[Rfam]
RNA sequence: UCAACGGCCCUUAUCAGGGCCACAAAUUUAUUUAUACGUUUGAUAU
Numbered sequence: 001u002c003a004a005c006g007g008c009c010c011u012u013a014u015c016a017g018g019g020c021c022a023c024a025a026a027u028u029u030a031u032u033u034a035u036a037c038g039u040u041u042g043a044u045a046u
Stems, first nucleotide, its partner, number of pairs: 006021006
Background: The record is a 46-nucleotide RNA sequence from Acromyrmex echinatior, which matches "Histone 3' UTR stem-loop" in Rfam. By type it is a cis-regulatory element. The mRNAs of metazoan histone genes lack a poly-A tail. 3' end processing occurs at a site between a highly conserved stem-loop (modelled by this family) and a purine rich region around 20 nts downstream (the histone downstream element, or HDE). The stem-loop is bound by a 31 kDa stem-loop binding protein (SLBP - also termed the histone hairpin binding protein, or HBP). Together with U7 snRNA binding of the HDE, SLBP binding nucleate s the formation of the processing complex. The match comes from Rfam's covariance-model search (35 bits).